RNA sequence: AAUUGGCUUAGUUAGGAGGCAAACAUGAACCUGGAGGACCAGAGGAUCUCUGGUCUUCCUUUGGCUAAGGCCUCUUGAGGGGACUCUCUUGCUGCUAAACCCAGAUCGAUUGUCCUCCAAGCAGCCUCGGACAUUC
Numbered sequence: 001a002a003u004u005g006g007c008u009u010a011g012u013u014a015g016g017a018g019g020c021a022a023a024c025a026u027g028a029a030c031c032u033g034g035a036g037g038a039c040c041a042g043a044g045g046a047u048c049u050c051u052g053g054u055c056u057u058c059c060u061u062u063g064g065c066u067a068a069g070g071c072c073u074c075u076u077g078a079g080g081g082g083a084c085u086c087u088c089u090u091g092c093u094g095c096u097a098a099a100c101c102c103a104g105a106u107c108g109a110u111u112g113u114c115c116u117c118c119a120a121g122c123a124g125c126c127u128c129g130g131a132c133a134u135u136c
Stems, first nucleotide, its partner, number of pairs: 004021002007018003034058005045051001065130002068127004074121004079117006087109001
RNA: Small nucleolar RNA U19
Organism: Eucalyptus grandis